[Rfam]
RNA sequence: ACAACUGUGUCCUAUGGCUUUCUAUUCCUAUGUGAGUUUGUUCUAACAUUUCAUGUAGGGUUUAAAGCCAUCGGAUACCCAGUGGA
Numbered sequence: 001a002c003a004a005c006u007g008u009g010u011c012c013u014a015u016g017g018c019u020u021u022c023u024a025u026u027c028c029u030a031u032g033u034g035a036g037u038u039u040g041u042u043c044u045a046a047c048a049u050u051u052c053a054u055g056u057a058g059g060g061u062u063u064a065a066a067g068c069c070a071u072c073g074g075a076u077a078c079c080c081a082g083u084g085g086a
Stems, first nucleotide, its partner, number of pairs: 002085001004083003007078006014071008024062001026060010
Source information: A member of the RNA family "mir-135 microRNA precursor family" from Perca flavescens, 86 nucleotides long. A reference for the family is Lagos-Quintana et al. (2002), "Identification of tissue-specific microRNAs from mouse", Curr Biol. The organism belongs to Perca, within Eukaryota. A search with the family's covariance model found it, with a score of 69 bits. Its family is annotated with RISC complex and gene silencing by miRNA in the Gene Ontology. Pairs were carried over by alignment from the consensus structure, which was predicted with PFOLD.